[Rfam]
The family of this 100-nucleotide RNA sequence from Dissostichus mawsoni is "Small nucleolar RNA SNORD16".
The family is grouped with related families in Rfam's "SNORD16 clan".
NCBI's taxonomy places the organism under Eukaryota, Actinopteri, Teleostei, Notothenioidei, Dissostichus.
RNA sequence: UGCCAUGAUGGUGUAAUUUGCGUCUGAGCCUGUGAACAGUGACAGUGGCCUGCUGUCGUUAAGCUGUCAUAAGGCAUUGACGAGUAUGAGUUUCUGAGCA
Number, nucleotide and partner (000 for none) at each position: 001u100002g099003c098004c000005a000006u000007g000008a000009u000010g000011g000012u000013g000014u000015a000016a000017u000018u000019u000020g000021c082022g081023u080024c079025u000026g000027a000028g000029c000030c000031u071032g070033u069034g068035a000036a000037c000038a000039g064040u063041g057042a056043c055044a054045g053046u000047g000048g000049c000050c000051u000052g000053c045054u044055g043056u042057c041058g000059u000060u000061a000062a000063g040064c039065u000066g000067u000068c034069a033070u032071a031072a000073g000074g000075c000076a000077u000078u000079g024080a023081c022082g021083a000084g000085u000086a000087u000088g000089a000090g000091u000092u000093u000094c000095u000096g000097a000098g003099c002100a001